[Rfam]
RNA sequence: GUAGAUGCUCAUUCCAUCUCUUAUGUUUGCCCCUGGCUUCAUAAACCCAGGAAUGAUGCAGAGCCUUUUACAGUGCUUAUCGUCCACUAACAGAUGUCGCGGCCUGUUCGCCUCAUCAGACAAUACGGACACCACGUUGAGUGAAGCACUAUUAAGUUGUCACACAGACCUGUUUGUUGCCCGUCAAAUUUUGGCGGGUAUUUUUUU
Numbered sequence: 001g002u003a004g005a006u007g008c009u010c011a012u013u014c015c016a017u018c019u020c021u022u023a024u025g026u027u028u029g030c031c032c033c034u035g036g037c038u039u040c041a042u043a044a045a046c047c048c049a050g051g052a053a054u055g056a057u058g059c060a061g062a063g064c065c066u067u068u069u070a071c072a073g074u075g076c077u078u079a080u081c082g083u084c085c086a087c088u089a090a091c092a093g094a095u096g097u098c099g100c101g102g103c104c105u106g107u108u109c110g111c112c113u114c115a116u117c118a119g120a121c122a123a124u125a126c127g128g129a130c131a132c133c134a135c136g137u138u139g140a141g142u143g144a145a146g147c148a149c150u151a152u153u154a155a156g157u158u159g160u161c162a163c164a165c166a167g168a169c170c171u172g173u174u175u176g177u178u179g180c181c182c183g184u185c186a187a188a189u190u191u192u193g194g195c196g197g198g199u200a201u202u203u204u205u206u207u
Stems, first nucleotide, its partner, number of pairs: 001064002006060003009056004015051001017050001019043001027036001029034001072150007082130004093117004159169003176202001178200009
Rfam assigns this 207-nucleotide RNA sequence from Tenebrionibacter intestinalis to the family "GlmZ RNA activator of glmS mRNA".
The base pairs follow the family's consensus structure, which is taken from published work.
This RNA was discovered in E. coli during a large scale screen. The sraJ gene was expressed in early logarithmic phase, but its level decreased with cell growth. Specific cleavage products of this RNA were found. Identified in Yersinia pseudotuberculosis as Ysr248/153/sR016.
For this family Rfam cites "Novel small RNA-encoding genes in the intergenic regions of Escherichia coli" (Argaman et al., Curr Biol, 2001).
It is annotated as a small RNA.